[Rfam]
Rfam assigns this 160-nucleotide RNA to the family "sroC RNA".

RNA sequence: ACUAACUAAAAUAAAUGGGAGGCUUCCCCUCCCUCUCGAUUGCUACUCGGCACGGACAGACUAUAAGCCUGAUGGUCGUUCCCCAUCAGGCCUGAAAACCGCAAAACGCCGAAUAACAAUCUUCGAGGGUAGCGCUGCUACCCUUUUUUUUCUGGAGUAG
Numbered sequence: 001a002c003u004a005a006c007u008a009a010a011a012u013a014a015a016u017g018g019g020a021g022g023c024u025u026c027c028c029c030u031c032c033c034u035c036u037c038g039a040u041u042g043c044u045a046c047u048c049g050g051c052a053c054g055g056a057c058a059g060a061c062u063a064u065a066a067g068c069c070u071g072a073u074g075g076u077c078g079u080u081c082c083c084c085a086u087c088a089g090g091c092c093u094g095a096a097a098a099c100c101g102c103a104a105a106a107c108g109c110c111g112a113a114u115a116a117c118a119a120u121c122u123u124c125g126a127g128g129g130u131a132g133c134g135c136u137g138c139u140a141c142c143c144u145u146u147u148u149u150u151u152c153u154g155g156a157g158u159a160g
Stems, first nucleotide, its partner, number of pairs: 012159002017033004021028002034128005039120004045114001053101003057094003067091009
For this family Rfam cites "RNomics in Escherichia coli detects new sRNA species and indicates parallel transcriptional output in bacteria" (Vogel et al., Nucleic Acids Res, 2003). Rfam's curators write: This family consists of a number of bacterial sroC RNA genes of around 160 bases in length. sroC is found in several Enterobacterial species. It base-pairs with GcvB. This interaction triggers the degradation of GcvB by RNase E, alleviating the GcvB-mediated mRNA repression of other amino acid-related transport and metabolic genes. The family's consensus secondary structure was predicted with PFOLD.